[Rfam]
RNA sequence: ACGGCAGCCCGGAAGGCCAAGAUCGAUCCGAAAGAGAAGGGUCGGUCUCCCGUACCGGACUACCCAGCACGGACCCCGGCACCCACGCGGAGCCAUAGCCGCUGACAGGGCAGAAGUGUUGCGGGCCUGCGGAAUUGCGAAAUACGGACGGUACACCGGACCCCAGGGGUGGGGUCGUAUUCGUAGCGUGUCGCAACUACGCCGAGGCCACCCCGCGCAACCCACCUAGCACGCCUGGUAACCGGAAUUCCGUGCUAGCGGGCGACGAGCCGAGUUACUCGGGUCGUCGCCCGCUUCGCAUG
Numbered sequence: 001a002c003g004g005c006a007g008c009c010c011g012g013a014a015g016g017c018c019a020a021g022a023u024c025g026a027u028c029c030g031a032a033a034g035a036g037a038a039g040g041g042u043c044g045g046u047c048u049c050c051c052g053u054a055c056c057g058g059a060c061u062a063c064c065c066a067g068c069a070c071g072g073a074c075c076c077c078g079g080c081a082c083c084c085a086c087g088c089g090g091a092g093c094c095a096u097a098g099c100c101g102c103u104g105a106c107a108g109g110g111c112a113g114a115a116g117u118g119u120u121g122c123g124g125g126c127c128u129g130c131g132g133a134a135u136u137g138c139g140a141a142a143u144a145c146g147g148a149c150g151g152u153a154c155a156c157c158g159g160a161c162c163c164c165a166g167g168g169g170u171g172g173g174g175u176c177g178u179a180u181u182c183g184u185a186g187c188g189u190g191u192c193g194c195a196a197c198u199a200c201g202c203c204g205a206g207g208c209c210a211c212c213c214c215g216c217g218c219a220a221c222c223c224a225c226c227u228a229g230c231a232c233g234c235c236u237g238g239u240a241a242c243c244g245g246a247a248u249u250c251c252g253u254g255c256u257a258g259c260g261g262g263c264g265a266c267g268a269g270c271c272g273a274g275u276u277a278c279u280c281g282g283g284u285c286g287u288c289g290c291c292c293g294c295u296u297c298g299c300a301u302g
Stems, first nucleotide, its partner, number of pairs: 003064002006061002009058004015051002020048002024044006066256008076245004083238003087234003092230002098111003118221006124209005129202003135196006144189003148184004152179001157177001159176006258294011270282003
RNA: Mycobacterium smegmatis small RNA 1
Organism: Mycolicibacterium insubricum